Shown here is a 146-nucleotide sequence from Cohnella sp. CIP 111063, a member of the family "Group II catalytic intron D1-D4-4". Rfam links the family to the GO term Group II intron splicing. Group II introns are found in rRNA, tRNA and mRNA of organelles in fungi, plants and protists, and also in mRNA in bacteria. The source organism's lineage runs through Bacteria, Bacillati, Bacillota, Bacilli and Cohnella. The pairing is the family consensus, mapped onto this sequence. Rfam 15.1 lists 840 matches to the family in 506 species. It scores 90 bits against the family's covariance model. On this family, see Bonen and Vogel, Trends Genet 2001: "The ins and outs of group II introns".

RNA sequence: UAGCCGGUGGAAGUCCGGUCACGGGAGGGGCCAAGAAGCCCCCGUGCAGCUAGGAUGCCUGCGUAUGGCGAAAUCUGUGCGUAGAAGCGCAUCGACGAAAGUACCUGUUGGAGACAGGGCGAGCAACAGACCAGGCCGCAACAGGA
Numbered sequence: 001u002a003g004c005c006g007g008u009g010g011a012a013g014u015c016c017g018g019u020c021a022c023g024g025g026a027g028g029g030g031c032c033a034a035g036a037a038g039c040c041c042c043c044g045u046g047c048a049g050c051u052a053g054g055a056u057g058c059c060u061g062c063g064u065a066u067g068g069c070g071a072a073a074u075c076u077g078u079g080c081g082u083a084g085a086a087g088c089g090c091a092u093c094g095a096c097g098a099a100a101g102u103a104c105c106u107g108u109u110g111g112a113g114a115c116a117g118g119g120c121g122a123g124c125a126a127c128a129g130a131c132c133a134g135g136c137c138g139c140a141a142c143a144g145g146a
Stems, first nucleotide, its partner, number of pairs: 020046005054093005059084006068075001101120001104118005123139002